This 105-nucleotide RNA from Senna tora belongs to the Rfam family "Small nucleolar RNA Z279/snoR105/snoR108". A reference for the family is Marker et al. (2002), "Experimental RNomics: identification of 140 candidates for small non-messenger RNAs in the plant Arabidopsis thaliana", Curr Biol. Clan: snoU13 clan. It scores 73 bits against the family's covariance model. Taxonomically the source falls in Senna (Eukaryota, Viridiplantae, Tracheophyta, Gunneridae). This family includes the plant snoRNAs known as Z279, snoR105 and snoR108.
RNA sequence: GGGAUAUGAGGAGCGGUUGGAUCUCGCAAUUGAAUGCGAGUUGGGUGUCCAUCCCAAAGCCUGCUUACGACAACUGGCCACUCUCCAUUUUACCAAUCUCAUCCC
Numbered sequence: 001g002g003g004a005u006a007u008g009a010g011g012a013g014c015g016g017u018u019g020g021a022u023c024u025c026g027c028a029a030u031u032g033a034a035u036g037c038g039a040g041u042u043g044g045g046u047g048u049c050c051a052u053c054c055c056a057a058a059g060c061c062u063g064c065u066u067a068c069g070a071c072a073a074c075u076g077g078c079c080a081c082u083c084u085c086c087a088u089u090u091u092a093c094c095a096a097u098c099u100c101a102u103c104c105c
Base pairs, nucleotide, nucleotide: 001105002104003103004102016094018092023040024039025038026037027036043083044082045081046080047079049077061076063074065073